Source information
The family of this 228-nucleotide RNA sequence from Miscanthus lutarioriparius is "MIR6217 microRNA precursor family".
RNA sequence: UGGCUAUAAAAUAACUUAUUUUGUAGUUACUUUGAGUUACGAUAAUUACUAUGUUAAUUUACGAAACUAUAAUACCUCCUUGCUAAGUGGUUUACUAUAAUAUUAUGGUAAAUAUCUCCAUGUGUUAUAGUAACCCAACUAUCGUAAAUAUGUAUUAACAUUAUCGUAAAUUAGUAUAUGAAACUAUCAUAAAUGAAGGUGACUACAGAAUAACUUAUUUUGUAGCUG
Numbered sequence: 001u002g003g004c005u006a007u008a009a010a011a012u013a014a015c016u017u018a019u020u021u022u023g024u025a026g027u028u029a030c031u032u033u034g035a036g037u038u039a040c041g042a043u044a045a046u047u048a049c050u051a052u053g054u055u056a057a058u059u060u061a062c063g064a065a066a067c068u069a070u071a072a073u074a075c076c077u078c079c080u081u082g083c084u085a086a087g088u089g090g091u092u093u094a095c096u097a098u099a100a101u102a103u104u105a106u107g108g109u110a111a112a113u114a115u116c117u118c119c120a121u122g123u124g125u126u127a128u129a130g131u132a133a134c135c136c137a138a139c140u141a142u143c144g145u146a147a148a149u150a151u152g153u154a155u156u157a158a159c160a161u162u163a164u165c166g167u168a169a170a171u172u173a174g175u176a177u178a179u180g181a182a183a184c185u186a187u188c189a190u191a192a193a194u195g196a197a198g199g200u201g202a203c204u205a206c207a208g209a210a211u212a213a214c215u216u217a218u219u220u221u222g223u224a225g226c227u228g
Stems, first nucleotide, its partner, number of pairs: 001228014016213018037192003041188004046183002050178013066164001069161002074155001080147004087142006093132011107117002
Dot-bracket structure: ((((((((((((((.((((((((((((((((((...(((.((((.((..(((((((((((((...(..((...(.....((((...(((((((((((((((((...((.......))....)))))))))))....)))))).)))).......)....))..).)))))))))))))...)).)))).)))...)))))))))))))))))).))))))))))))))

A search with the family's covariance model found it, with a score of 173 bits. The source organism's lineage runs through Eukaryota, Streptophytina, Petrosaviidae, Andropogonodae and Miscanthus.